[Rfam]
RNA sequence: GAGUGUUACUGCUUUUAGAAUUUGUCUAGCAGGUUUUCUGGUCUUUACCAGAAACUGUCCCC
Numbered sequence: 001g002a003g004u005g006u007u008a009c010u011g012c013u014u015u016u017a018g019a020a021u022u023u024g025u026c027u028a029g030c031a032g033g034u035u036u037u038c039u040g041g042u043c044u045u046u047a048c049c050a051g052a053a054a055c056u057g058u059c060c061c062c
Base pairs, nucleotide, nucleotide: 032059033058034057035054036053037052038051039050040049041048042047

Source information
The record is a 62-nucleotide RNA from Sapajus apella, which matches "U7 small nuclear RNA" in Rfam. A search with the family's covariance model found it, with a score of 54 bits. Rfam 15.1 lists 10,439 matches to the family in 569 species. NCBI's taxonomy places the organism under Eukaryota, Gnathostomata, Euarchontoglires, Simiiformes, Sapajus.